[Rfam]
Rfam assigns this 96-nucleotide sequence from Pseudoflavonifractor sp. AF19-9AC to the family "Glycine riboswitch aptamer". Its family is annotated with glycine biosynthetic process in the Gene Ontology. The match comes from Rfam's covariance-model search (57 bits). NCBI's taxonomy places the organism under Bacteria, Bacillota, Clostridia, Eubacteriales, Pseudoflavonifractor. This family represents the bacterial glycine riboswitch. Glycine riboswitches usually consist of two metabolite-binding aptamers domains with similar structures in tandem.
Nucleotides: 096
Base pairs, nucleotide, nucleotide: 006091009088010087011086012085013084020030021029022028023027032076033075034074035072036071039070041068046063047062048061049060050059051058052057
Number, partner (000 for none) and nucleotide at each position: 001000g002000g003000a004000u005000g006091u007000a008000a009088c010087u011086c012085u013084g014000g015000a016000g017000a018000a019000g020030c021029u022028c023027g024000a025000u026000u027023c028022g029021a030020g031000u032076g033075c034074c035072g036071a037000a038000g039070g040000u041068g042000c043000a044000a045000c046063g047062c048061g049060g050059u051058u052057u053000u054000u055000u056000u057052a058051g059050g060049c061048c062047g063046c064000c065000a066000a067000u068041c069000u070039c071036u072035c073000a074034g075033g076032c077000a078000a079000a080000a081000g082000g083000a084013c085012a086011g087010a088009g089000g090000a091006g092000g093000a094000c095000a096000a